[Rfam]
RNA sequence: GGCAAAGUAGGAUAAUAUGCGUUAAGUGUUUGAUGGACGGGGAGUUGCCAUCGAAACGAAAAGUUUUUAGAACUUGCGGUAUAUUAUUCGCAUCCCGUUGCU
Numbered sequence: 001g002g003c004a005a006a007g008u009a010g011g012a013u014a015a016u017a018u019g020c021g022u023u024a025a026g027u028g029u030u031u032g033a034u035g036g037a038c039g040g041g042g043a044g045u046u047g048c049c050a051u052c053g054a055a056a057c058g059a060a061a062a063g064u065u066u067u068u069a070g071a072a073c074u075u076g077c078g079g080u081a082u083a084u085u086a087u088u089c090g091c092a093u094c095c096c097g098u099u100g101c102u
Stems, first nucleotide, its partner, number of pairs: 001102005010089010020078003026057002029055008040095003044091001061075004

The record is a 102-nucleotide sequence from Anaeromicropila herbilytica, which matches "THF (Tetrahydrofolate) riboswitch aptamer" in Rfam.
About the family: Tetrahydrofolate (THF) riboswitch was first reported for Ames et al. as an RNA motif in 5' untranslated (5'-UTR)regions of folate transport and biosynthesis genes in Firmicutes genomes.
Rfam links the family to the GO term tetrahydrofolate metabolic process.
Lineage of the source: Bacteria > Bacillati > Clostridia > Lachnospiraceae > Anaeromicropila.
The match comes from Rfam's covariance-model search (93 bits).
Pairs were carried over by alignment from the consensus structure, which is taken from published work.